[Rfam]
Rfam assigns this 246-nucleotide RNA from Aspergillus leporis to the family "Small nucleolar RNA snR191".
The match comes from Rfam's covariance-model search (49 bits).
Pairs were carried over by alignment from the consensus structure, which was predicted with WAR.
A reference for the family is Badis et al. (2003), "A snoRNA that guides the two most conserved pseudouridine modifications within rRNA confers a growth advantage in yeast", RNA.
Nucleotides: 246
Base pairs, nucleotide, nucleotide: 003079004078005077017066018065019064020063021061023059024058025057026056029041030040031039032038092164093160094159095158096157099123100122101121105117106116107115108114125152126151127150129148132146133145134144135143136142137141167240168239169238170237173234174233175232185225186224187223190220191219192218193217195210196209197208198207199206200205
Number, partner (000 for none) and nucleotide at each position: 001000u002000g003079c004078c005077a006000u007000u008000g009000c010000u011000a012000a013000g014000u015000c016000a017066a018065g019064g020063c021061u022000u023059c024058u025057c026056c027000g028000u029041c030040g031039a032038c033000u034000a035000c036000g037000u038032g039031u040030c041029g042000u043000a044000c045000u046000u047000u048000u049000c050000a051000c052000c053000a054000u055000g056026g057025g058024a059023g060000u061021a062000u063020g064019u065018c066017u067000g068000u069000u070000a071000c072000a073000g074000c075000u076000u077005u078004g079003g080000u081000a082000g083000a084000u085000u086000g087000a088000c089000g090000c091000u092164c093160g094159c095158c096157c097000g098000c099123g100122c101121c102000a103000a104000c105117c106116u107115u108114c109000u110000u111000u112000c113000u114108g115107a116106a117105g118000c119000a120000a121101g122100g123099c124000u125152g126151a127150c128000c129148g130000g131000u132146u133145u134144u135143c136142c137141g138000u139000u140000u141137u142136g143135g144134a145133a146132g147000c148129c149000u150127g151126u152125c153000g154000c155000a156000a157096g158095g159094g160093c161000c162000g163000u164092g165000u166000u167240g168239u169238g170237u171000u172000c173234c174233g175232u176000u177000u178000u179000u180000g181000a182000g183000u184000u185225g186224a187223g188000u189000c190220c191219u192218g193217c194000u195210c196209c197208g198207g199206c200205c201000a202000u203000u204000u205200g206199g207198c208197u209196g210195g211000c212000u213000c214000a215000u216000a217193g218192c219191a220190g221000a222000u223187c224186u225185c226000u227000u228000a229000g230000u231000a232175a233174c234173g235000u236000u237170a238169c239168a240167c241000a242000c243000a244000u245000u246000c